[Rfam]
A member of the RNA family "Selenocysteine transfer RNA", 90 nucleotides long.
Rfam 15.1 lists 4,211 matches to the family in 3,344 species.
The match comes from Rfam's covariance-model search (59 bits).
RNA sequence: GGCUGGUUAAGAGAGCCGGUGCUCUCCGCGGACUGCAAACCCGUUGAAGACUCUGAAUCGGUCUUGUUCGGUUCAACUCCGAACCCAGCC
Numbered sequence: 001g002g003c004u005g006g007u008u009a010a011g012a013g014a015g016c017c018g019g020u021g022c023u024c025u026c027c028g029c030g031g032a033c034u035g036c037a038a039a040c041c042c043g044u045u046g047a048a049g050a051c052u053c054u055g056a057a058u059c060g061g062u063c064u065u066g067u068u069c070g071g072u073u074c075a076a077c078u079c080c081g082a083a084c085c086c087a088g089c090c
Stems, first nucleotide, its partner, number of pairs: 001090006008083001011026006028044004047065005068082004